[Rfam]
RNA: Small nucleolar SNORD12/SNORD106
RNA sequence: GCUGGUGUACGUGAUGACUAAACUUUUUUCCCCAUCAGAGCGACAGUGCUGAUUUUUCAUUGCUUUAGCCAGAUUCAGUCUGAUACACCAUC
Numbered sequence: 001g002c003u004g005g006u007g008u009a010c011g012u013g014a015u016g017a018c019u020a021a022a023c024u025u026u027u028u029u030c031c032c033c034a035u036c037a038g039a040g041c042g043a044c045a046g047u048g049c050u051g052a053u054u055u056u057u058c059a060u061u062g063c064u065u066u067a068g069c070c071a072g073a074u075u076c077a078g079u080c081u082g083a084u085a086c087a088c089c090a091u092c
Base pairs, nucleotide, nucleotide: 001092003090004089005088006087007086008085009084